RNA sequence: GGUGCGGCCCGAAAGGAAUGAGCCUCCCCGAAGGAAACCGCGGCGACGCGGGAGUACGAGGGGAGGGGACCGGGGUUGCACCGUCCGUCUUGAAACACGG
Number, nucleotide and partner (000 for none) at each position: 001g082002g081003u080004g079005c078006g077007g076008c075009c074010c073011g000012a000013a000014a000015g071016g070017a000018a000019u000020g000021a000022g000023c066024c065025u064026c063027c062028c061029c060030g000031a000032a000033g057034g000035a000036a000037a000038c051039c050040g049041c048042g047043g000044c000045g000046a000047c042048g041049c040050g039051g038052g000053a000054g000055u000056a000057c033058g000059a000060g029061g028062g027063g026064a025065g024066g023067g000068g000069a000070c016071c015072g000073g010074g009075g008076u007077u006078g005079c004080a003081c002082c001083g000084u000085c100086c099087g098088u097089c000090u000091u000092g000093a000094a000095a000096c000097a088098c087099g086100g085
RNA: Archaeal large subunit ribosomal RNA, nucleotides 571 to 670